[Rfam]
RNA sequence: AGUGAUCUUCAGGGCAGGGUGCAAUUCCCUACCGGCGGUAAAGCCCGCGAGCCGAAAGGCAUGAUCCGGUGAGAUUCCGGGGCCGACAGUAAAGUCUGGAUGGAAGAAGAUGCGU
Numbered sequence: 001a002g003u004g005a006u007c008u009u010c011a012g013g014g015c016a017g018g019g020u021g022c023a024a025u026u027c028c029c030u031a032c033c034g035g036c037g038g039u040a041a042a043g044c045c046c047g048c049g050a051g052c053c054g055a056a057a058g059g060c061a062u063g064a065u066c067c068g069g070u071g072a073g074a075u076u077c078c079g080g081g082g083c084c085g086a087c088a089g090u091a092a093a094g095u096c097u098g099g100a101u102g103g104a105a106g107a108a109g110a111u112g113c114g115u
Stems, first nucleotide, its partner, number of pairs: 005111006017029003031095002033085002035048004043083002053059001065081005087098003
RNA: FMN riboswitch aptamer (RFN element)
Organism: Mediterraneibacter butyricigenes